The family of this 173-nucleotide sequence from Haloplasma contractile is "Group II catalytic intron D1-D4-3".
The pairing is the family consensus, mapped onto this sequence.
RNA sequence: UCCAUCGUGAGGUGGAAGUCUUUUGGAAGACGGAGGCAUAGUCUUGGCUCGACGAACAGAAACCACAUAGAAGGCUGUAUAAACUGGAUGAGUUUGCUAAACAAAACAAACUCCAAUACUACCCGAGGUUUAUGCAGUAAAUGUGGCGAGUAGAUUAUAUGAAAGUAUUAACA
Numbered sequence: 001u002c003c004a005u006c007g008u009g010a011g012g013u014g015g016a017a018g019u020c021u022u023u024u025g026g027a028a029g030a031c032g033g034a035g036g037c038a039u040a041g042u043c044u045u046g047g048c049u050c051g052a053c054g055a056a057c058a059g060a061a062a063c064c065a066c067a068u069a070g071a072a073g074g075c076u077g078u079a080u081a082a083a084c085u086g087g088a089u090g091a092g093u094u095u096g097c098u099a100a101a102c103a104a105a106a107c108a109a110a111c112u113c114c115a116a117u118a119c120u121a122c123c124c125g126a127g128g129u130u131u132a133u134g135c136a137g138u139a140a141a142u143g144u145g146g147c148g149a150g151u152a153g154a155u156u157a158u159a160u161g162a163a164a165g166u167a168u169u170a171a172c173a
Base pairs, nucleotide, nucleotide: 001016002015003014004013005012006011033169036166037165041160042159044157046155047151048150049149050148051147063146064145065144066143067142068141074138075137076136078134079133080132081131082130083129084128086114087113088112092107093106094105095104
For this family Rfam cites "The ins and outs of group II introns" (Bonen and Vogel, Trends Genet, 2001). The family has 406 seed sequences and 4,274 matches in Rfam 15.1.